[Rfam]
RNA sequence: ACAAUGAAACUUCCGUAAUUCGCGGCCCGGCUAUAAAGAAGGCGGGGUGGCUGAAAAACCAAUGA
Number, nucleotide and partner (000 for none) at each position: 001a000002c000003a000004a000005u000006g000007a000008a000009a000010c000011u000012u062013c025014c024015g023016u022017a000018a000019u000020u000021c000022g016023c015024g014025g013026c047027c046028c045029g000030g043031c042032u041033a000034u000035a000036a000037a000038g000039a000040a000041g032042g031043c030044g000045g028046g027047g026048u061049g060050g059051c000052u000053g000054a000055a000056a000057a000058a000059c050060c049061a048062a012063u000064g000065a000
A member of the RNA family "pemK RNA", 65 nucleotides long. The sequence is in the family's curated seed alignment.